[Rfam]
RNA sequence: GACAACUGAUUAAUUAAAACUCGGAAUGAAAGCCGUCAUGUUGAGCUGAAACGAGUUAUCUGAUCCUCCUACAUGCACAUAAUGAUAGUAGUCAAAAUGUGUAUGAAGCUAGGUAAAGUCGGCUGAAAUGAACCUAAGUUGCUUAUCUAGAAUAUGGUUUGUGAUAGGUCGGGAUGCUACAAA
Dot-bracket structure: .................((((((.......(((...........)))....))))))((((......(((((((((((((..(((......)))..)))))))))....))))......(((((...(((((((((...........)))......))))))....)))))))))........